Shown here is a 367-nucleotide RNA from Rhodanobacter spathiphylli, a member of the family "Bacterial RNase P class A". Rfam's curators write: Ribonuclease P (RNase P) is a ubiquitous endoribonuclease, found in archaea, bacteria and eukarya as well as chloroplasts and mitochondria. The match comes from Rfam's covariance-model search (308 bits). Pairs were carried over by alignment from the consensus structure, which is taken from published work. Taxonomically the source falls in Rhodanobacter spathiphylli (Bacteria, Pseudomonadati, Lysobacterales, Rhodanobacter).

RNA sequence: GGAGUCGGCCGGACAGUCGCGUCGCGCGCAAGCGCAUCGAGGAAAGUCCGGGCUCCGCAGGGCAGAGUGCCAGGUAACUCCUGGGCAGCGUGAGCUGACGGCCAGUGCAACAGAGAGCAGACCGCCGAACGGCAUCUCCGGAUGUGCGUGGCAAGGGUGAAAGGGUGCGGUAAGAGCGCACCGCGUACGGGGCCAACGUCGUACGGCACGGUAAACCCCACUCGGAGCAAGACCAAAUAGGGGAACGAUAACGCGGCCCGCGUUGUUCCCGGGUAGGUUGCUGGAGCCAGGCGGCGACGCCUGGCCGAGAGGAAUGACUGUCGCGUCGCAAGACGUACAGAACCCGGCUUACAGGCCGACUCCACCU
Numbered sequence: 001g002g003a004g005u006c007g008g009c010c011g012g013a014c015a016g017u018c019g020c021g022u023c024g025c026g027c028g029c030a031a032g033c034g035c036a037u038c039g040a041g042g043a044a045a046g047u048c049c050g051g052g053c054u055c056c057g058c059a060g061g062g063c064a065g066a067g068u069g070c071c072a073g074g075u076a077a078c079u080c081c082u083g084g085g086c087a088g089c090g091u092g093a094g095c096u097g098a099c100g101g102c103c104a105g106u107g108c109a110a111c112a113g114a115g116a117g118c119a120g121a122c123c124g125c126c127g128a129a130c131g132g133c134a135u136c137u138c139c140g141g142a143u144g145u146g147c148g149u150g151g152c153a154a155g156g157g158u159g160a161a162a163g164g165g166u167g168c169g170g171u172a173a174g175a176g177c178g179c180a181c182c183g184c185g186u187a188c189g190g191g192g193c194c195a196a197c198g199u200c201g202u203a204c205g206g207c208a209c210g211g212u213a214a215a216c217c218c219c220a221c222u223c224g225g226a227g228c229a230a231g232a233c234c235a236a237a238u239a240g241g242g243g244a245a246c247g248a249u250a251a252c253g254c255g256g257c258c259c260g261c262g263u264u265g266u267u268c269c270c271g272g273g274u275a276g277g278u279u280g281c282u283g284g285a286g287c288c289a290g291g292c293g294g295c296g297a298c299g300c301c302u303g304g305c306c307g308a309g310a311g312g313a314a315u316g317a318c319u320g321u322c323g324c325g326u327c328g329c330a331a332g333a334c335g336u337a338c339a340g341a342a343c344c345c346g347g348c349u350u351a352c353a354g355g356c357c358g359a360c361u362c363c364a365c366c367u
Stems, first nucleotide, its partner, number of pairs: 001363010011352001012322007020039002024035004044350003048347005053227004060259004065223005070084005085099001086097004100218002105216002107212002122156002124152003130146002164182006183207001184205005189199001191197001231279004241270006250264005286305008